[Rfam]
RNA sequence: UUGGCUUCAAUCAAUGUGGGUCCUACGUUUUGAAAAUGAAACCCACAGUGGUGGGACAUACAUUGAUUUCACCCAA
Dot-bracket structure: ((((.(..((((((((((....(((((((.((...........)).)))).)))....))))))))))..).))))